Repression of heat shock gene expression (ROSE) element: an 88-nucleotide sequence from Roseomonas acroporae. The base pairs follow the family's consensus structure, which is taken from published work. Rfam links the family to the GO terms regulation of translation and response to temperature stimulus. Rfam's curators write: This family represents a 5' UTR cis-regulatory element found in heat shock mRNAs and is known as the ROSE (repression of heat shock gene expression) element. The ROSE element is a negative regulator of heat shock gene expression. The secondary structure is thought to be regulated by temperature. The match comes from Rfam's covariance-model search (55 bits).
RNA sequence: CCGAACGCCCAUGGAGGGGUUUGGCGAGGAGCCCAUCGGGCUCCCGGUCUCGUAUCCAUGUUGCUCGAAGAGGAUAUGGCUAUGGGAA
Numbered sequence: 001c002c003g004a005a006c007g008c009c010c011a012u013g014g015a016g017g018g019g020u021u022u023g024g025c026g027a028g029g030a031g032c033c034c035a036u037c038g039g040g041c042u043c044c045c046g047g048u049c050u051c052g053u054a055u056c057c058a059u060g061u062u063g064c065u066c067g068a069a070g071a072g073g074a075u076a077u078g079g080c081u082a083u084g085g086g087a088a
Stems, first nucleotide, its partner, number of pairs: 001024006008018002029045001031043001034040001049086006056079007064072003